[Rfam]
drz-agam-1 ribozyme: an 80-nucleotide RNA sequence from Hermetia illucens.
Gene Ontology term of the family: catalytic activity.
On this family, see Webb et al., Science 2009: "Widespread occurrence of self-cleaving ribozymes".
Pairs were carried over by alignment from the consensus structure, which is taken from published work.

RNA sequence: CUAUUAUCAAACCCUAUCUCCACCUCAACGUGGUGACCGCUGGGAGCUCUUUCUCAAAGAAAAUCUGCAGACGAGGAAGG
Numbered sequence: 001c002u003a004u005u006a007u008c009a010a011a012c013c014c015u016a017u018c019u020c021c022a023c024c025u026c027a028a029c030g031u032g033g034u035g036a037c038c039g040c041u042g043g044g045a046g047c048u049c050u051u052u053c054u055c056a057a058a059g060a061a062a063a064u065c066u067g068c069a070g071a072c073g074a075g076g077a078a079g080g
Stems, first nucleotide, its partner, number of pairs: 013080003017076004022034003046066001050062005